This 83-nucleotide RNA sequence from Devosia lucknowensis belongs to the Rfam family "ZMP/ZTP riboswitch aptamer (pfl RNA motif)". The organism belongs to Devosia, within Bacteria.
Nucleotides: 083
Base pairs, nucleotide, nucleotide: 003055005053006052007051008050009049010048011047015043016042017071018070019069020068021067028039029038030037031036060078062076063075064074
Number, partner (000 for none) and nucleotide at each position: 001000g002000c003055g004000c005053g006052u007051u008050c009049g010048c011047g012000c013000a014000a015043c016042u017071g018070g019069c020068g021067a022000g023000a024000u025000g026000a027000g028039a029038u030037g031036g032000g033000c034000a035000a036031c037030c038029a039028u040000c041000g042016g043015g044000g045000a046000a047011c048010g049009c050008g051007a052006a053005c054000c055003u056000c057000a058000u059000a060078g061000c062076g063075c064074c065000g066000c067021u068020c069019g070018c071017c072000u073000g074064g075063g076062c077000a078060c079000c080000c081000a082000a083000c
Pairs were carried over by alignment from the consensus structure, which is taken from published work.